mir-B6 microRNA precursor family: an 83-nucleotide RNA sequence from Varicellovirus bovinealpha1. The source organism's lineage runs through Viruses, Heunggongvirae, Orthoherpesviridae, Alphaherpesvirinae and Varicellovirus bovinealpha1. Pairs were carried over by alignment from the consensus structure, which was predicted with RNAalifold. Rfam links the family to the GO terms RISC complex and miRNA-mediated post-transcriptional gene silencing.

RNA sequence: CGCGGAGGGCAAGUGCCCGACGCGGGGAACGUGGCGGCGGACGCCAGCGCCGCGUCUCCGGCGCCGGGUCCUGGCCCUCCGCG
Numbered sequence: 001c002g003c004g005g006a007g008g009g010c011a012a013g014u015g016c017c018c019g020a021c022g023c024g025g026g027g028a029a030c031g032u033g034g035c036g037g038c039g040g041a042c043g044c045c046a047g048c049g050c051c052g053c054g055u056c057u058c059c060g061g062c063g064c065c066g067g068g069u070c071c072u073g074g075c076c077c078u079c080c081g082c083g
Base pairs, nucleotide, nucleotide: 001083002082003081004080005079006078007077008076009075010074012072013071016068017067018066019065021063022062023061025059026058029055030054031053032052033051034050035049036048039045040044